RNA sequence: UAUCAGUGGAGCAGUUACCACUACAAAAACGGGCGGAACCGAAAAGCCAGAUGAGUAGGAUUUUA
Number, nucleotide and partner (000 for none) at each position: 001u000002a000003u000004c000005a000006g021007u020008g019009g018010a000011g000012c000013a000014g000015u000016u000017a000018c009019c008020a007021c006022u000023a000024c000025a000026a000027a000028a000029a000030c000031g000032g048033g047034c046035g000036g000037a000038a000039c059040c058041g000042a000043a000044a000045a000046g034047c033048c032049a000050g000051a000052u000053g000054a000055g000056u000057a000058g040059g039060a000061u000062u000063u000064u000065a000

Annotation:
Shown here is a 65-nucleotide RNA from Chitinophaga sp. MD30, a member of the family "DUF805 RNA". Its Rfam clan is "DUF805 clan". The family has 46 seed sequences and 281 matches in Rfam 15.1. NCBI's taxonomy places the organism under Bacteria, Bacteroidota, Chitinophagales, Chitinophagaceae, Chitinophaga. A search with the family's covariance model found it, with a score of 69 bits. By type it is a cis-regulatory element.